[Rfam]
RNA sequence: GAGGUUGUGAGGAAAAACGCGCUCAGGGGGUGGAAACAAGGUCACACUCCCAAAAGACGUUUUGGA
Numbered sequence: 001g002a003g004g005u006u007g008u009g010a011g012g013a014a015a016a017a018c019g020c021g022c023u024c025a026g027g028g029g030g031u032g033g034a035a036a037c038a039a040g041g042u043c044a045c046a047c048u049c050c051c052a053a054a055a056g057a058c059g060u061u062u063u064g065g066a
Base pairs, nucleotide, nucleotide: 015062016061017060018059019058022056023055027051028050029049030047031046032045